[Rfam]
RNA sequence: AAGUAUGUGAUGAAUUAACUCGGAUUCCCCUACAAGACAUCUCGGGUGAUGAGAAAUCGAGUUUCUGAUGCU
Dot-bracket structure: .((((...............................................................))))
RNA: Small nucleolar RNA snoR60